[Rfam]
RNA sequence: UAAUGAUGCAGAUAGGGCUUGCCUAUGCUGUAUACUCGCAACACCGAAUUAACGUUUAAGCGACUUGUAAAGUCGCCGGAUGCGAGGGCCGCCGAAAGGCGGUUUUUUUUACCU
Numbered sequence: 001u002a003a004u005g006a007u008g009c010a011g012a013u014a015g016g017g018c019u020u021g022c023c024u025a026u027g028c029u030g031u032a033u034a035c036u037c038g039c040a041a042c043a044c045c046g047a048a049u050u051a052a053c054g055u056u057u058a059a060g061c062g063a064c065u066u067g068u069a070a071a072g073u074c075g076c077c078g079g080a081u082g083c084g085a086g087g088g089c090c091g092c093c094g095a096a097a098g099g100c101g102g103u104u105u106u107u108u109u110u111a112c113c114u
Stems, first nucleotide, its partner, number of pairs: 007032005012026005035086006044079003047056003060076006087104007
RNA: DUF3800-I RNA